[Rfam]
RNA sequence: UACAAAUGAUGUUUUCUCACGAUGGUCUUCCAAGCCCUCUGGGUUGUGACGAUAUCGCCUUAUGGCAACACUGAUGUAUUCUA
Numbered sequence: 001u002a003c004a005a006a007u008g009a010u011g012u013u014u015u016c017u018c019a020c021g022a023u024g025g026u027c028u029u030c031c032a033a034g035c036c037c038u039c040u041g042g043g044u045u046g047u048g049a050c051g052a053u054a055u056c057g058c059c060u061u062a063u064g065g066c067a068a069c070a071c072u073g074a075u076g077u078a079u080u081c082u083a
Stems, first nucleotide, its partner, number of pairs: 001078004
RNA: Small nucleolar RNA SNORD35